[Rfam]
Nucleotides: 053
Base pairs, nucleotide, nucleotide: 005024006023007022008021009020010019011018012017025045026044027043028042029041030040
Number, partner (000 for none) and nucleotide at each position: 001000g002000a003000a004000a005024g006023g007022c008021u009020g010019u011018a012017c013000g014000g015000g016000a017012g018011u019010a020009c021008a022007g023006c024005u025045g026044g027043a028042u029041g030040c031000g032000u033000c034000a035000u036000a037000c038000c039000g040030g041029c042028a043027u044026c045025c046000c047000a048000u049000u050000u051000a052000g053000g